[Rfam]
Nucleotides: 074
Base pairs, nucleotide, nucleotide: 004070011036012035016031017030018029019028020027021026034060039067040066041065042064044063045062046061047058048057049056
Number, partner (000 for none) and nucleotide at each position: 001000u002000u003000c004070g005000c006000a007000a008000a009000a010000g011036c012035c013000a014000c015000a016031c017030c018029c019028g020027u021026c022000g023000c024000g025000a026021g027020g028019c029018g030017g031016g032000g033000c034060c035012g036011g037000a038000a039067a040066g041065c042064c043000a044063c045062g046061g047058g048057u049056c050000u051000c052000u053000u054000g055000a056049g057048a058047u059000a060034g061046c062045c063044g064042g065041g066040u067039u068000g069000c070004c071000a072000a073000u074000c